About this RNA
This 75-nucleotide sequence from Alligator mississippiensis belongs to the Rfam family "Mammalian CPEB3 ribozyme". The family's consensus secondary structure is taken from published work. On this family, see Salehi-Ashtiani et al., Science 2006: "A genomewide search for ribozymes reveals an HDV-like sequence in the human CPEB3 gene".
[Rfam]
RNA sequence: AGUGCAAGGUUGAGGCUAUUGCAGAAGCUCUCAUGGUGUGGCCUGUCAGAUUACAAUGAAUCUGCAAAUUUUGCU
Numbered sequence: 001a002g003u004g005c006a007a008g009g010u011u012g013a014g015g016c017u018a019u020u021g022c023a024g025a026a027g028c029u030c031u032c033a034u035g036g037u038g039u040g041g042c043c044u045g046u047c048a049g050a051u052u053a054c055a056a057u058g059a060a061u062c063u064g065c066a067a068a069u070u071u072u073g074c075u
Stems, first nucleotide, its partner, number of pairs: 014043004021074006027039002047064006